[Rfam]
RNA sequence: UUGGAGAUGAGGAUUAUUUCCCCAGAUGACCGACGCUGAUUAUACUGUGCUUAUUUUAUGUUUCUCAUUCAUCUGAGAACUCAAGCCAGAACUCUGAUCCGU
Numbered sequence: 001u002u003g004g005a006g007a008u009g010a011g012g013a014u015u016a017u018u019u020c021c022c023c024a025g026a027u028g029a030c031c032g033a034c035g036c037u038g039a040u041u042a043u044a045c046u047g048u049g050c051u052u053a054u055u056u057u058a059u060g061u062u063u064c065u066c067a068u069u070c071a072u073c074u075g076a077g078a079a080c081u082c083a084a085g086c087c088a089g090a091a092c093u094c095u096g097a098u099c100c101g102u
Base pairs, nucleotide, nucleotide: 002101003100004099005098
Dot-bracket structure: .((((............................................................................................)))).